[Rfam]
RNA: mir-144 microRNA precursor family
RNA sequence: UUUGGGAUAUCAUCAUAUACUGUAAGUUUGUUUUAAGACACUACAGUAUAGAUGAUGUACUA
Numbered sequence: 001u002u003u004g005g006g007a008u009a010u011c012a013u014c015a016u017a018u019a020c021u022g023u024a025a026g027u028u029u030g031u032u033u034u035a036a037g038a039c040a041c042u043a044c045a046g047u048a049u050a051g052a053u054g055a056u057g058u059a060c061u062a
Stems, first nucleotide, its partner, number of pairs: 004061002007058008016050009026039003